[Rfam]
RNA sequence: AGGAAUAACAACAUUGGCGGUGGCCAGCUCUCUAGCGCUGGAAUCAGCUCCUGCAGCAACUAUGGAGCUCUCAGUCUGCAGGGGCCUGGAUGCUCUGGGGGCGG
Numbered sequence: 001a002g003g004a005a006u007a008a009c010a011a012c013a014u015u016g017g018c019g020g021u022g023g024c025c026a027g028c029u030c031u032c033u034a035g036c037g038c039u040g041g042a043a044u045c046a047g048c049u050c051c052u053g054c055a056g057c058a059a060c061u062a063u064g065g066a067g068c069u070c071u072c073a074g075u076c077u078g079c080a081g082g083g084g085c086c087u088g089g090a091u092g093c094u095c096u097g098g099g100g101g102c103g104g
Base pairs, nucleotide, nucleotide: 002096003095004094006092007091009088010087012084014082019076020075021074022071023070026069027068028067029066030065031064033062034061037057038056039055040054
Source information:
The record is a 104-nucleotide RNA from Canis lupus, which matches "mir-8834 microRNA precursor family" in Rfam. Lineage of the source: Eukaryota > Vertebrata > Gnathostomata > Euteleostomi > Canis lupus. It scores 49 bits against the family's covariance model. Its family is annotated with RISC complex and miRNA-mediated post-transcriptional gene silencing in the Gene Ontology.